[Rfam]
Background
A member of the RNA family "SAM riboswitch aptamer (S box leader)" from Terribacillus sp. AE2B 122, 102 nucleotides long. The match comes from Rfam's covariance-model search (90 bits). For this family Rfam cites "Structure and folding of four putative kink turns identified in structured RNA species in a test of structural prediction rules" (Huang et al., Nucleic Acids Res, 2021). Lineage of the source: Bacteria > Bacillota > Bacilli > Caryophanales > Terribacillus.

RNA sequence: CUCUUAUCAAGAGUGGCGGAGGGACUGGCCCGAUGAAGCCCGGCAACCACAGGUUAUCCUGUAUGGUGCCAAUUCCUGCAGGGAAACCUGUACAGAUGAGAG
Numbered sequence: 001c002u003c004u005u006a007u008c009a010a011g012a013g014u015g016g017c018g019g020a021g022g023g024a025c026u027g028g029c030c031c032g033a034u035g036a037a038g039c040c041c042g043g044c045a046a047c048c049a050c051a052g053g054u055u056a057u058c059c060u061g062u063a064u065g066g067u068g069c070c071a072a073u074u075c076c077u078g079c080a081g082g083g084a085a086a087c088c089u090g091u092a093c094a095g096a097u098g099a100g101a102g
Stems, first nucleotide, its partner, number of pairs: 001102008013041001015040003021031003025078001027076002042070004047066002049062004074094001079090004